Bacillaceae-1 RNA: a 67-nucleotide RNA sequence from Domibacillus mangrovi. The family's consensus secondary structure is taken from published work. It scores 66 bits against the family's covariance model. It is annotated as a small RNA.
RNA sequence: ACAAGCAAAACGAAGACUAAGAUCGUCACGUCCUGUGACAACGUCUGCAUGAUUCACAUCGUGUGAA
Numbered sequence: 001a002c003a004a005g006c007a008a009a010a011c012g013a014a015g016a017c018u019a020a021g022a023u024c025g026u027c028a029c030g031u032c033c034u035g036u037g038a039c040a041a042c043g044u045c046u047g048c049a050u051g052a053u054u055c056a057c058a059u060c061g062u063g064u065g066a067a
Base pairs, nucleotide, nucleotide: 012048014046015045016044017043025039026038027037028036029035053067054066055065056064057063